[Rfam]
The family of this 130-nucleotide RNA from Gossypium mustelinum is "mir-399 microRNA precursor family". NCBI's taxonomy places the organism under Eukaryota, Spermatophyta, malvids, Malvoideae, Gossypium. The match comes from Rfam's covariance-model search (59 bits). Rfam 15.1 lists 2,396 matches to the family in 221 species. The literature on the family includes a 2004 paper in Mol Cell by Jones-Rhoades and Bartel, "Computational Identification of Plant MicroRNAs and Their Targets, Including a Stress-Induced miRNA". mir-399 was identified in both Arabidopsis thaliana and Oryza sativa computationally and was later experimentally verified. mir-399 is thought to target mRNAs coding for a phosphatase transporter. The mature sequence is excised from the 3' arm of the hairpin.
RNA sequence: GCAAAUAUUACAGGGCAAUAUCUCCAUUGGCAGGCGGCCACUUACACAGGCAUUCCUACUCCAACUACAAACUCAAAUGCAUUAGUACAGUGUGCUCUCUGCCAAAGGAGAUUUGCCCGGUAAUUCUUUU
Numbered sequence: 001g002c003a004a005a006u007a008u009u010a011c012a013g014g015g016c017a018a019u020a021u022c023u024c025c026a027u028u029g030g031c032a033g034g035c036g037g038c039c040a041c042u043u044a045c046a047c048a049g050g051c052a053u054u055c056c057u058a059c060u061c062c063a064a065c066u067a068c069a070a071a072c073u074c075a076a077a078u079g080c081a082u083u084a085g086u087a088c089a090g091u092g093u094g095c096u097c098u099c100u101g102c103c104a105a106a107g108g109a110g111a112u113u114u115g116c117c118c119g120g121u122a123a124u125u126c127u128u129u130u
Stems, first nucleotide, its partner, number of pairs: 007124003011120001013118006022110004028104007036096003